A member of the RNA family "Fluoride riboswitch aptamer (crcB RNA motif)" from Affinibrenneria salicis, 61 nucleotides long. Rfam links the family to the GO terms response to fluoride and positive regulation of gene expression. Pairs were carried over by alignment from the consensus structure, which is taken from published work. A search with the family's covariance model found it, with a score of 51 bits.
[Rfam]
RNA sequence: GUAUUUGACGGAGAUGACAUUCCUCCAUAACCGCCUGUUGGCUAAUGAUGUCUACGUAACC
Numbered sequence: 001g002u003a004u005u006u007g008a009c010g011g012a013g014a015u016g017a018c019a020u021u022c023c024u025c026c027a028u029a030a031c032c033g034c035c036u037g038u039u040g041g042c043u044a045a046u047g048a049u050g051u052c053u054a055c056g057u058a059a060c061c
Stems, first nucleotide, its partner, number of pairs: 010026004016052006033042003